The family of this 76-nucleotide RNA from Xanthomonas campestris is "Xanthomonas sRNA sX9".
A reference for the family is Schmidtke et al. (2011), "Genome-wide transcriptome analysis of the plant pathogen Xanthomonas identifies sRNAs with putative virulence functions", Nucleic Acids Res.
The base pairs follow the family's consensus structure, which was predicted with RNAalifold.
It scores 74 bits against the family's covariance model.
The organism belongs to Xanthomonas campestris pv. campestris, within Bacteria.
Nucleotides: 076
Stems, first nucleotide, its partner, number of pairs: 002016004020035001022033002025030001047074003051070003
Number, partner (000 for none) and nucleotide at each position: 001000a002016u003015g004014u005013a006000c007000c008000a009000c010000u011000c012000c013005u014004g015003c016002a017000c018000a019000c020035c021000a022033g023032c024000u025030c026000u027000u028000c029000c030025g031000c032023g033022c034000c035020g036000u037000c038000c039000g040000c041000a042000c043000c044000c045000a046000c047074c048073u049072g050000g051070c052069g053068g054000c055000u056000g057000c058000u059000c060000g061000c062000u063000a064000c065000g066000u067000u068053u069052u070051g071000a072049u073048a074047g075000c076000c